[Rfam]
RNA sequence: GGGGUGUGCUCAGAGCAGGGGGCCUGAAGAAAUGGCUGUUUAUAACACACCCGACAGGAACCUGGGUUCAGUGUGACGCGGGGCACAAACGUGUGGCCUUCCUGUGAGCAGAAACCCGGCUCGU
Numbered sequence: 001g002g003g004g005u006g007u008g009c010u011c012a013g014a015g016c017a018g019g020g021g022g023c024c025u026g027a028a029g030a031a032a033u034g035g036c037u038g039u040u041u042a043u044a045a046c047a048c049a050c051c052c053g054a055c056a057g058g059a060a061c062c063u064g065g066g067u068u069c070a071g072u073g074u075g076a077c078g079c080g081g082g083g084c085a086c087a088a089a090c091g092u093g094u095g096g097c098c099u100u101c102c103u104g105u106g107a108g109c110a111g112a113a114a115c116c117c118g119g120c121u122c123g124u
Stems, first nucleotide, its partner, number of pairs: 002052007013041005022036003065117002068114001072110003077106002080099003084095004
Record summary
A member of the RNA family "Small nucleolar RNA SNORA11" from Cervus elaphus, 124 nucleotides long. On this family, see Gu et al., Nucleic Acids Res 2005: "A novel experimental approach for systematic identification of box H/ACA snoRNAs from eukaryotes". NCBI's taxonomy places the organism under Eukaryota, Metazoa, Tetrapoda, Amniota, Cervus elaphus. U107 (SNORA11) is a member of the H/ACA class of snoRNAs that guide the sites of modification of uridines to pseudouridines. This snoRNA was identified by RT-PCR from blood cells and its expression confirmed by Northern blot analysis. There is no predicted target for this guide snRNA. Its family is annotated with nucleolus and RNA processing in the Gene Ontology. The family's consensus secondary structure was predicted with RNAalifold. A search with the family's covariance model found it, with a score of 95 bits.